[Rfam]
A member of the RNA family "Clostridiales-1 RNA" from Dorea sp. CAG:105, 162 nucleotides long. Pairs were carried over by alignment from the consensus structure, which is taken from published work. It scores 82 bits against the family's covariance model.
RNA sequence: AAUACCAAGGGAUAAAAGUGUGUCAUCCGUCUGAACUUGUUCAGAGACGGAUGACACACUUUGAGACCUGCCACGUUAUGAGCAUGUAAGAGGAGCGUAAGCUCCACGAUAUGCGAAUAGCGGGGGCGAAUUGCGAGAGUACGCAGUACUCCGGCUUCCAUU
Numbered sequence: 001a002a003u004a005c006c007a008a009g010g011g012a013u014a015a016a017a018g019u020g021u022g023u024c025a026u027c028c029g030u031c032u033g034a035a036c037u038u039g040u041u042c043a044g045a046g047a048c049g050g051a052u053g054a055c056a057c058a059c060u061u062u063g064a065g066a067c068c069u070g071c072c073a074c075g076u077u078a079u080g081a082g083c084a085u086g087u088a089a090g091a092g093g094a095g096c097g098u099a100a101g102c103u104c105c106a107c108g109a110u111a112u113g114c115g116a117a118u119a120g121c122g123g124g125g126g127c128g129a130a131u132u133g134c135g136a137g138a139g140u141a142c143g144c145a146g147u148a149c150u151c152c153g154g155c156u157u158c159c160a161u162u
Base pairs, nucleotide, nucleotide: 007162010068011067013065016061017060018059019058020057021056022055023054024053025052026051027050028049029048030047031044032043033042034041035040072124074122075121076120077119078118079117082114083113084112085111090107092105093104094103095102096101128159130157134153139149140148141147142146